[Rfam]
RNA sequence: CUUUCAAAUCUUUCUGUUUUGGUAC
Numbered sequence: 001c002u003u004u005c006a007a008a009u010c011u012u013u014c015u016g017u018u019u020u021g022g023u024a025c
Stems, first nucleotide, its partner, number of pairs: 005021004
RNA: CRISPR RNA direct repeat element
Organism: Pelusios castaneus